[Rfam]
RNA sequence: CUCACGUUCGACGCCUUCCCAUCGGGUCUACACUCGAGGCGCGGCAACCAAGCGGUUGCCGAUUGUCCAUACUUCGACCUGAGGAAAGUCCCCGGACCCACAAGCAGAAAGUGCAACCGGCCCAACGGCCGAUCGGCGCACUCUCGCCCUUCCGUGUCUUUCUACGGAGGUGACCAGGGGUCCCCCAACUCGGGCGUCUGUGAUCCGUCAGGACGGGCUUGUAGUGUUUGCCGACUGGUCCUAGAUAUAUAGUAUGUAAGGAAGGGUAGCCCGCGUCAAAACGGGAUAUCCCAACUUAAUGGGGCUUACGUUCGAACGUGA
Numbered sequence: 001c002u003c004a005c006g007u008u009c010g011a012c013g014c015c016u017u018c019c020c021a022u023c024g025g026g027u028c029u030a031c032a033c034u035c036g037a038g039g040c041g042c043g044g045c046a047a048c049c050a051a052g053c054g055g056u057u058g059c060c061g062a063u064u065g066u067c068c069a070u071a072c073u074u075c076g077a078c079c080u081g082a083g084g085a086a087a088g089u090c091c092c093c094g095g096a097c098c099c100a101c102a103a104g105c106a107g108a109a110a111g112u113g114c115a116a117c118c119g120g121c122c123c124a125a126c127g128g129c130c131g132a133u134c135g136g137c138g139c140a141c142u143c144u145c146g147c148c149c150u151u152c153c154g155u156g157u158c159u160u161u162c163u164a165c166g167g168a169g170g171u172g173a174c175c176a177g178g179g180g181u182c183c184c185c186c187a188a189c190u191c192g193g194g195c196g197u198c199u200g201u202g203a204u205c206c207g208u209c210a211g212g213a214c215g216g217g218c219u220u221g222u223a224g225u226g227u228u229u230g231c232c233g234a235c236u237g238g239u240c241c242u243a244g245a246u247a248u249a250u251a252g253u254a255u256g257u258a259a260g261g262a263a264g265g266g267u268a269g270c271c272c273g274c275g276u277c278a279a280a281a282c283g284g285g286a287u288a289u290c291c292c293a294a295c296u297u298a299a300u301g302g303g304g305c306u307u308a309c310g311u312u313c314g315a316a317c318g319u320g321a
Stems, first nucleotide, its partner, number of pairs: 002321010014261004019256001022082007042061007086307003090304004104114003116133001118131004135225001146218004151213003165207004264291005
Source information
Rfam assigns this 321-nucleotide RNA sequence from Cinara cedri to the family "RNase MRP". By type it is a ribozyme. Gene Ontology terms of the family: ribonuclease MRP complex, ribonuclease MRP activity and rRNA processing.